A member of the RNA family "Eukaryotic large subunit ribosomal RNA" from Phaeodactylum tricornutum, 481 nucleotides of a longer RNA.
RNA sequence: UAGAAGAAUGUAGUUAAGGGAAGUCGGCAAAAUAGAUCCGUAACUUCGGGAAAAGGAUUGGCUCUCAGGGUUGGGCCUUUGGGGUCUCUUGGCUGCCCGCUUGUGGCUGCUGAUUAGGACUGCCUCACGGCGGGCCUGAUUGGCGGCCCUCGCGGGCUGGCCUUGGGAAUUUUCCCCACGGCGAUGAACAACCAGCUGAGAACUGGUGACGGACAAGGGGAAUCCGACUGUUUAAUUAAAACAAAGCAUUGCGAGGGCCGGAAACGGUGUUGACGCAAUGUGAUUUCUGCCCAGUGCUCUGAAUGUCAAAGUGAAGGAAUUCAACCAAGCGCGGGUAAACGGCGGGAGUAACUAUGACUCUCUUAAGGUAGCCAAAUGCCUCGUCAUCUAAUUAGUGACGCGCAUGAAUGGAUGAAUGAGAUUCCCACUGUCCCUAAUUACUAUCUAGCGAACCCACAGCCAAGGGAACGGGCUUGGAAGA
Number, nucleotide and partner (000 for none) at each position: 001u447002a446003g445004a444005a000006g000007a000008a000009u000010g441011u440012a439013g438014u437015u436016a435017a000018g433019g432020g431021a000022a000023g000024u000025c000026g000027g000028c000029a000030a000031a000032a000033u000034a000035g059036a058037u057038c056039c055040g000041u000042a000043a000044c049045u000046u000047c000048g000049g044050g000051a000052a000053a000054a000055g039056g038057a037058u036059u035060g204061g203062c000063u201064c200065u199066c198067a197068g196069g193070g192071u191072u190073g189074g000075g182076c181077c180078u000079u178080u000081g176082g175083g174084g000085u168086c167087u000088c165089u000090u000091g162092g161093c160094u159095g158096c156097c155098c154099g153100c152101u000102u000103g149104u000105g148106g147107c146108u145109g144110c143111u142112g141113a140114u139115u138116a137117g136118g135119a000120c133121u132122g131123c130124c129125u000126c000127a000128c000129g124130g123131c122132g121133g120134g000135c118136c117137u116138g115139a114140u113141u112142g111143g110144c109145g108146g107147c106148c105149c103150u000151c000152g100153c099154g098155g097156g096157c000158u095159g094160g093161c092162c091163u000164u000165g088166g000167g086168a085169a000170u000171u000172u000173u000174c083175c082176c081177c000178a079179c000180g077181g076182c075183g000184a000185u000186g000187a000188a000189c073190a072191a071192c070193c069194a000195g000196c068197u067198g066199a065200g064201a063202a000203c061204u060205g210206g000207u000208g000209a000210c205211g000212g000213a000214c000215a000216a000217g000218g426219g425220g424221a423222a422223u421224c420225c418226g417227a000228c000229u243230g242231u241232u000233u000234a000235a000236u000237u000238a000239a000240a000241a231242c230243a229244a000245a000246g281247c280248a279249u278250u277251g276252c275253g274254a000255g270256g000257g268258c267259c266260g265261g000262a000263a000264a000265c260266g259267g258268u257269g000270u255271u000272g000273a000274c253275g252276c251277a250278a249279u248280g247281u246282g000283a000284u000285u412286u411287c410288u000289g343290c342291c341292c000293a000294g340295u339296g336297c335298u334299c333300u000301g332302a000303a000304u331305g330306u329307c000308a000309a000310a000311g000312u323313g322314a321315a320316g000317g000318a000319a000320u315321u314322c313323a312324a000325c000326c000327a000328a000329g306330c305331g304332c301333g299334g298335g297336u296337a000338a000339a295340c294341g291342g290343c289344g362345g361346g360347a359348g358349u357350a000351a000352c000353u000354a000355u000356g000357a349358c348359u347360c346361u345362c344363u367364u000365a000366a000367g363368g000369u000370a000371g000372c000373c000374a000375a000376a000377u000378g000379c000380c000381u000382c000383g399384u398385c397386a396387u395388c000389u000390a000391a000392u000393u000394a000395g387396u386397g385398a384399c383400g000401c000402g000403c000404a000405u000406g000407a000408a000409u000410g287411g286412a285413u000414g000415a000416a000417u226418g225419a000420g224421a223422u222423u221424c220425c219426c218427a000428c000429u000430g000431u020432c019433c018434c000435u016436a015437a014438u013439u012440a011441c010442u000443a000444u004445c003446u002447a001448g000449c000450g000451a000452a000453c000454c000455c000456a000457c000458a000459g000460c477461c476462a475463a474464g473465g000466g000467a000468a000469c000470g000471g000472g000473c464474u463475u462476g461477g460478a000479a000480g000481a000

Description: Gene Ontology terms of the family: structural constituent of ribosome and ribosome.